[Rfam]
RNA sequence: AUUAAAUAUUGGCAAACUAUUUGAAAAAAUAGGUCGCAAAGCUUUAGAGACUAAGUUGACCAUUAUAAGCAAUAUGCUUUUAUGGAAGUUUCAAUAUGUCAGUCAGCUGCCUCC
Dot-bracket structure: ...........((...((((((....))))))...))..((((...(((((....((((...............................))))...)))..))))))......
This 114-nucleotide sequence from Monoglobus pectinilyticus belongs to the Rfam family "c-di-GMP-I riboswitch aptamer". The source organism's lineage runs through Bacteria, Bacillota, Monoglobales, Monoglobaceae and Monoglobus. Pairs were carried over by alignment from the consensus structure, which is taken from published work. Rfam links the family to the GO term cyclic-di-GMP binding.